[Rfam]
A member of the RNA family "MIR2912 microRNA precursor family" from Populus deltoides, 161 nucleotides long.

RNA sequence: UCUAGAACUCUAGAUAUGGGUAAAAUUCUGUGUAGUAUUUGGGCUGGAUUGCAUAACAGAUUCUGACUUCUCUUUUGUGGCCAAACUUUGAAUUUGAAAACGGCAAAUUUGGGUCUUCCACUAUUCAUGAACAUUGUAGGCCUAUUUCUUAGCUUUCUAUC
Number, nucleotide and partner (000 for none) at each position: 001u000002c000003u159004a158005g157006a156007a155008c152009u151010c000011u000012a149013g148014a147015u000016a145017u144018g143019g142020g141021u139022a000023a137024a000025a135026u000027u000028c000029u000030g134031u133032g132033u000034a000035g000036u000037a000038u000039u127040u000041g000042g126043g000044c000045u000046g124047g000048a122049u000050u120051g119052c000053a117054u000055a000056a114057c113058a000059g110060a109061u000062u107063c000064u105065g104066a000067c103068u102069u000070c000071u000072c000073u097074u096075u000076u000077g093078u092079g000080g000081c000082c000083a000084a000085a000086c000087u000088u000089u000090g000091a000092a078093u077094u000095u000096g074097a073098a000099a000100a000101c000102g068103g067104c065105a064106a000107a062108u000109u060110u059111g000112g000113g057114u056115c000116u000117u053118c000119c051120a050121c000122u048123a000124u046125u000126c042127a039128u000129g000130a000131a000132c032133a031134u030135u025136g000137u023138a000139g021140g000141c020142c019143u018144a017145u016146u000147u014148c013149u012150u000151a009152g008153c000154u000155u007156u006157c005158u004159a003160u000161c000